[Rfam]
RNA sequence: ACGCCCCUGCCGACAGCGCGCCAAGGGGGCUGGGAAUCCCGGCAUCCCCACCUCGCUGCCGGAUGGUCCUUUGAACCGAGGCGUCAUG
Number, nucleotide and partner (000 for none) at each position: 001a084002c083003g082004c081005c080006c000007c000008u000009g000010c062011c061012g060013a000014c000015a057016g056017c055018g054019c000020g052021c000022c000023a000024a000025g048026g047027g045028g000029g043030c042031u041032g040033g039034g000035a000036a000037u000038c000039c033040c032041g031042g030043c029044a000045u027046c000047c026048c025049c000050a000051c000052c020053u000054c018055g017056c016057u015058g000059c000060c012061g011062g010063a000064u078065g077066g076067u000068c000069c000070u000071u000072u000073g000074a000075a000076c066077c065078g064079a000080g005081g004082c003083g002084u001085c000086a000087u000088g000
A member of the RNA family "dauA ncRNA motif" from Streptomyces fulvoviolaceus, 88 nucleotides long.
dauA ncRNA motif was reported as a strong cis regulatory motif candidate, with potential to be a cis regulatory riboswitch type, it have been identified in genomes of the genus Streptomyces.
Pairs were carried over by alignment from the consensus structure, which is taken from published work.
It is one of the family's seed sequences.